[Rfam]
Nucleotides: 130
Stems, first nucleotide, its partner, number of pairs: 004121004009117002018039009043073005049067003053063002076089004094112007122129002
Number, partner (000 for none) and nucleotide at each position: 001000a002000g003000a004121u005120g006119a007118g008000a009117g010116a011000a012000a013000c014000a015000c016000c017000c018039c019038g020037u021036u022035c023034a024033c025032g026031g027000g028000a029000g030000a031026c032025c033024g034023u035022g036021g037020g038019c039018g040000a041000c042000a043073c044072c045071a046070g047069g048000u049067c050066g051065g052000a053063g054062c055000c056000u057000c058000c059000c060000c061000a062054g063053c064000c065051c066050c067049g068000c069047c070046c071045u072044g073043g074000a075000c076089g077088u078087g079086c080000c081000u082000u083000c084000g085000c086079g087078c088077a089076c090000a091000c092000a093000c094112c095111u096110g097109g098108a099107g100106c101000c102000a103000u104000g105000c106100g107099c108098u109097c110096c111095g112094g113000a114000a115000c116010u117009c118007c119006u120005c121004a122129c123128c124000g125000a126000u127000c128123g129122g130000a